This 111-nucleotide RNA from Bacillus sp. FJAT-18017 belongs to the Rfam family "BsrF".
The organism belongs to Bacillus, within Bacteria.

RNA sequence: GCGAUGAGCUGAAUUGUGUAAGUCGGGAACACUCCCUUUUGGGAACAUGCGAUGUGGCGCAUGGUUACCCGCCUCAAUACGCAGAAAGGCGCCUAUCCUCGGAUAGGCGCC
Numbered sequence: 001g002c003g004a005u006g007a008g009c010u011g012a013a014u015u016g017u018g019u020a021a022g023u024c025g026g027g028a029a030c031a032c033u034c035c036c037u038u039u040u041g042g043g044a045a046c047a048u049g050c051g052a053u054g055u056g057g058c059g060c061a062u063g064g065u066u067a068c069c070c071g072c073c074u075c076a077a078u079a080c081g082c083a084g085a086a087a088g089g090c091g092c093c094u095a096u097c098c099u100c101g102g103a104u105a106g107g108c109g110c111c
Stems, first nucleotide, its partner, number of pairs: 014077003018073001024071004028066003033042002046063002049060003088111009

By type it is a small RNA. For this family Rfam cites "Novel small RNA-encoding genes in the intergenic regions of Bacillus subtilis" (Saito et al., Gene, 2008).